[Rfam]
RNA sequence: AAUCUUCAGUUUAUGAGUAAAGAAAAUACCAAUUUAGGGUGUUGCCCAAAUCCUCACUGCUAAUGUGAGACGAAUUUUUGAGCAGGUAAAAGUUGCUCCUAAAGUGACCCUCCUCCUUUGCAGGAUGCCUGGGAUUUGCAAUAUGUCCA
Numbered sequence: 001a002a003u004c005u006u007c008a009g010u011u012u013a014u015g016a017g018u019a020a021a022g023a024a025a026a027u028a029c030c031a032a033u034u035u036a037g038g039g040u041g042u043u044g045c046c047c048a049a050a051u052c053c054u055c056a057c058u059g060c061u062a063a064u065g066u067g068a069g070a071c072g073a074a075u076u077u078u079u080g081a082g083c084a085g086g087u088a089a090a091a092g093u094u095g096c097u098c099c100u101a102a103a104g105u106g107a108c109c110c111u112c113c114u115c116c117u118u119u120g121c122a123g124g125a126u127g128c129c130u131g132g133g134a135u136u137u138g139c140a141a142u143a144u145g146u147c148c149a
Stems, first nucleotide, its partner, number of pairs: 001018001032051004037046002053069005085147003090144001092142005099133002102130001104128003108124002112120001
This 149-nucleotide sequence from Trichechus manatus belongs to the Rfam family "U12 minor spliceosomal RNA". The source organism's lineage runs through Eukaryota, Eumetazoa, Theria, Trichechidae and Trichechus manatus. It is annotated as a spliceosomal small nuclear RNA. Rfam links the family to the GO terms U12 snRNP, mRNA branch site recognition and pre-mRNA branch point binding. It scores 72 bits against the family's covariance model.